A member of the RNA family "Bacterial small signal recognition particle RNA" from Burkholderiales bacterium PBB4, 98 nucleotides long. NCBI's taxonomy places the organism under Bacteria, Pseudomonadati, Pseudomonadota, Betaproteobacteria, Burkholderiales. It scores 68 bits against the family's covariance model. The base pairs follow the family's consensus structure, which is taken from published work. From the family's description: The signal recognition particle (SRP) is a universally conserved ribonucleoprotein involved in the co-translational targeting of proteins to membranes.
[Rfam]
RNA sequence: GGCGUGCCCCUUCGCAUGGUUCGGCGGCAAAUCUGGUCAGGUCGGGAACGAAGCAGCCAUAGUCGUGCAGAAACAGUGCCGAAGUCAGGCUCGCCUCU
Number, nucleotide and partner (000 for none) at each position: 001g000002g000003c000004g092005u000006g090007c089008c088009c000010c084011u083012u082013c081014g080015c076016a000017u075018g074019g000020u072021u071022c070023g000024g066025c065026g064027g063028c062029a000030a000031a000032u000033c000034u059035g058036g057037u056038c000039a000040g000041g000042u051043c050044g049045g000046g000047a000048a000049c044050g043051a042052a000053g000054c000055a000056g037057c036058c035059a034060u000061a000062g028063u027064c026065g025066u024067g000068c000069a000070g022071a021072a020073a000074c018075a017076g015077u000078g000079c000080c014081g013082a012083a011084g010085u000086c000087a000088g008089g007090c006091u000092c004093g000094c000095c000096u000097c000098u000